[Rfam]
RNA sequence: UGCCGGUUGUCCAUAAACCGGGGUUACUGAAGAGGCACACCUUCAUUGCCGGCAGUGCGGAACGGGUCUCCCAAUCCAAGCCAAGGCAGACAAAGCGAGCGCAGGCCGCAAGGCCCUAGCAAGCCGACGCGCGUGACGCGUAUUCAUGGCAC
Numbered sequence: 001u002g003c004c005g006g007u008u009g010u011c012c013a014u015a016a017a018c019c020g021g022g023g024u025u026a027c028u029g030a031a032g033a034g035g036c037a038c039a040c041c042u043u044c045a046u047u048g049c050c051g052g053c054a055g056u057g058c059g060g061a062a063c064g065g066g067u068c069u070c071c072c073a074a075u076c077c078a079a080g081c082c083a084a085g086g087c088a089g090a091c092a093a094a095g096c097g098a099g100c101g102c103a104g105g106c107c108g109c110a111a112g113g114c115c116c117u118a119g120c121a122a123g124c125c126g127a128c129g130c131g132c133g134u135g136a137c138g139c140g141u142a143u144u145c146a147u148g149g150c151a152c
Base pairs, nucleotide, nucleotide: 001023003021004020005019006018007017008016034050035049036048037047057152059150081089099134100133101132102131
Rfam assigns this 152-nucleotide sequence from Mesorhizobium denitrificans to the family "speF leader". This family is a putative regulatory RNA structure that is found upstream of the speF gene encoding ornithine decarboxylase in Agrobacterium tumefaciens and other alpha-proteobacteria. NCBI's taxonomy places the organism under Bacteria, Pseudomonadota, Alphaproteobacteria, Hyphomicrobiales, Mesorhizobium. It scores 91 bits against the family's covariance model. It is annotated as a cis-regulatory leader.